[Rfam]
RNA sequence: UAUGAAAAAUGCAGGUAAGGGAAGUCGGCAAAUUAGACCCGUAACUUUGGGAAAAGGGUUGGCUCUAGUGCUGCGUGAGGCCUGGUCGGUGGCUGUGCUGUUGUUUGGUGGCGAACGUUGCCUUGAGCGUUUUUCGCAAGGAGGAUGUUCGGCAAUGUAGCUCUGGACAACCGCGGCCGGCGACGCUCACAGCAUGCAGCAAACUAGAACUGCAACGGGCAAGGGGAAUCCGACUGUUUAAUUAAAACAAAGCAUUGCGAAGGCCGGGGACGGUGAUUACGCAAUGUGAUUUCUGCUCAGUGCUCUGAAUGUCAAAGUGAAGAGAUUCAAUCAAGCGCGGGUAAACAGCGGGAGUAACUAUGACUCUCUUAAGGUAGCCAAAUGCCUCGUCAUCUAAUUAGUGACGCGCAUGAAUGGAUUAACGAGAUUCCUACUGUCCCUAUCUGCUUCUAGCGAAACCACAGCCAGGGGAACGGGCCUGGAAAA
Numbered sequence: 001u002a003u004g005a006a007a008a009a010u011g012c013a014g015g016u017a018a019g020g021g022a023a024g025u026c027g028g029c030a031a032a033u034u035a036g037a038c039c040c041g042u043a044a045c046u047u048u049g050g051g052a053a054a055a056g057g058g059u060u061g062g063c064u065c066u067a068g069u070g071c072u073g074c075g076u077g078a079g080g081c082c083u084g085g086u087c088g089g090u091g092g093c094u095g096u097g098c099u100g101u102u103g104u105u106u107g108g109u110g111g112c113g114a115a116c117g118u119u120g121c122c123u124u125g126a127g128c129g130u131u132u133u134u135c136g137c138a139a140g141g142a143g144g145a146u147g148u149u150c151g152g153c154a155a156u157g158u159a160g161c162u163c164u165g166g167a168c169a170a171c172c173g174c175g176g177c178c179g180g181c182g183a184c185g186c187u188c189a190c191a192g193c194a195u196g197c198a199g200c201a202a203a204c205u206a207g208a209a210c211u212g213c214a215a216c217g218g219g220c221a222a223g224g225g226g227a228a229u230c231c232g233a234c235u236g237u238u239u240a241a242u243u244a245a246a247a248c249a250a251a252g253c254a255u256u257g258c259g260a261a262g263g264c265c266g267g268g269g270a271c272g273g274u275g276a277u278u279a280c281g282c283a284a285u286g287u288g289a290u291u292u293c294u295g296c297u298c299a300g301u302g303c304u305c306u307g308a309a310u311g312u313c314a315a316a317g318u319g320a321a322g323a324g325a326u327u328c329a330a331u332c333a334a335g336c337g338c339g340g341g342u343a344a345a346c347a348g349c350g351g352g353a354g355u356a357a358c359u360a361u362g363a364c365u366c367u368c369u370u371a372a373g374g375u376a377g378c379c380a381a382a383u384g385c386c387u388c389g390u391c392a393u394c395u396a397a398u399u400a401g402u403g404a405c406g407c408g409c410a411u412g413a414a415u416g417g418a419u420u421a422a423c424g425a426g427a428u429u430c431c432u433a434c435u436g437u438c439c440c441u442a443u444c445u446g447c448u449u450c451u452a453g454c455g456a457a458a459c460c461a462c463a464g465c466c467a468g469g470g471g472a473a474c475g476g477g478c479c480u481g482g483a484a485a486a
Stems, first nucleotide, its partner, number of pairs: 001452002004450002011447007019439003036060005045050001061211002064208006070200005076189004083182002085168003089164001091162002093152003097148002101144002104141003108137004113132007212216001224432007231424002235249003252287008263274004291418003295349003300346002302342004307338001310337003318329004350368006369373001389405005465482005

This 486-nucleotide part of an RNA from Gracilariopsis chorda belongs to the Rfam family "Eukaryotic large subunit ribosomal RNA". The match comes from Rfam's covariance-model search (2839 bits). The organism belongs to Gracilariopsis, within Eukaryota.